[Rfam]
RNA sequence: GCCCGCAGCCCUUCCUGGGCGUUUCCUCCCUAGACUUGGGCCGUUGCACGUCCGUGCCAACGGCCCUUUUUUUGUCCGGAG
Numbered sequence: 001g002c003c004c005g006c007a008g009c010c011c012u013u014c015c016u017g018g019g020c021g022u023u024u025c026c027u028c029c030c031u032a033g034a035c036u037u038g039g040g041c042c043g044u045u046g047c048a049c050g051u052c053c054g055u056g057c058c059a060a061c062g063g064c065c066c067u068u069u070u071u072u073u074g075u076c077c078g079g080a081g
Stems, first nucleotide, its partner, number of pairs: 008020004038066009
Dot-bracket structure: .......((((.....)))).................(((((((((...........)))))))))...............
A member of the RNA family "Makes More Granules Regulator RNA (mmgR)" from Kaustia mangrovi, 81 nucleotides long. It scores 66 bits against the family's covariance model. By type it is a small RNA. Rfam describes the family as follows. SuhB later renamed mmgR (makes more granules regulator) was a putative non-coding RNA found multiple times in the Agrobacterium tumefaciens genome and related alpha-proteobacteria. Other non-coding RNAs uncovered in the same analysis include: speF, ybhL, metA, and serC.Several studies inSinorhizobium meliloti showed that suhB element is indeed a non-coding RNA:firstly it was detected on Northern blot and called Sm8RNA, secondly in an RNAseq study referred to as SmelC689.The mutant phenotype's (strain lacking the small RNA) cytoplasm contains higher content of polyhydroxybutyrate (PBH)storage granules than wild type strain. The sRNA is required to limit the PBH intracellular accumulation when the nitrogen-fixing Sinorhizobium meliloti is under condition of surplus carbon in relation to nitrogen. It has been renamed to mmgR. Further study confirmed that mmgR fine-tunes the regulation of PBH storage.Northern blot confirmed the expression of the sRNA in other rhizobia species. MmgR homologues were found in most alpha-proteobacteria. Pairs were carried over by alignment from the consensus structure.